[Rfam]
RNA sequence: CUAGCACUUUCACAGGUCCUCCCCCAGGCACUGGGGACAGACCCUGGCAACUGGUGCUAAGAGAAAACCCUUGACUGUAUCUUUGAUGUGGGACUGUACUGGUGGCAGUUGUCACUCAAUGGGACAGAG
Numbered sequence: 001c002u003a004g005c006a007c008u009u010u011c012a013c014a015g016g017u018c019c020u021c022c023c024c025c026a027g028g029c030a031c032u033g034g035g036g037a038c039a040g041a042c043c044c045u046g047g048c049a050a051c052u053g054g055u056g057c058u059a060a061g062a063g064a065a066a067a068c069c070c071u072u073g074a075c076u077g078u079a080u081c082u083u084u085g086a087u088g089u090g091g092g093a094c095u096g097u098a099c100u101g102g103u104g105g106c107a108g109u110u111g112u113c114a115c116u117c118a119a120u121g122g123g124a125c126a127g128a129g
Stems, first nucleotide, its partner, number of pairs: 003058006013046003019040002022036004068123003071119004076114002079112002083108003087104001089101003